Shown here is a 49-nucleotide RNA from Orbus hercynius, a member of the family "Guanidine-II riboswitch aptamer (mini-ykkC)". The base pairs follow the family's consensus structure, which is taken from published work. A search with the family's covariance model found it, with a score of 33 bits. NCBI's taxonomy places the organism under Bacteria, Pseudomonadati, Pseudomonadota, Orbaceae, Orbus.

RNA sequence: UUAGUAGGACGACCUAACUAAGUUUCAUUAUUUCUAAGGGACGACCCUU
Numbered sequence: 001u002u003a004g005u006a007g008g009a010c011g012a013c014c015u016a017a018c019u020a021a022g023u024u025u026c027a028u029u030a031u032u033u034c035u036a037a038g039g040g041a042c043g044a045c046c047c048u049u
Base pairs, nucleotide, nucleotide: 001021002020003019004018005016006015007014008013036049037048038047039046040045